[Rfam]
Nucleotides: 083
Stems, first nucleotide, its partner, number of pairs: 001069003004065004013056007022049002
Number, partner (000 for none) and nucleotide at each position: 001069a002068c003067u004065c005064a006063g007062g008000c009000a010000c011000g012000a013056u014055c015054a016053c017052c018051c019050u020000a021000g022049g023048c024000u025000u026000c027000c028000g029000u030000u031000u032000c033000a034000u035000u036000c037000g038000g039000c040000g041000a042000a043000g044000u045000c046000a047000u048023g049022c050019g051018g052017g053016g054015u055014g056013a057000a058000c059000c060000g061000a062007c063006c064005u065004g066000a067003a068002g069001u070000g071000c072000a073000a074000u075000c076000c077000u078000g079000a080000g081000g082000g083000a
The family of this 83-nucleotide RNA from Corynebacterium yudongzhengii is "L31-Corynebacteriaceae ribosomal protein leader". The match comes from Rfam's covariance-model search (65 bits). The organism belongs to Corynebacterium, within Bacteria. The family's RNA type in Rfam is cis-regulatory leader. The literature on the family includes a 2020 paper in BMC Microbiol by Eckert and Weinberg, "Discovery of 20 novel ribosomal leader candidates in bacteria and archaea".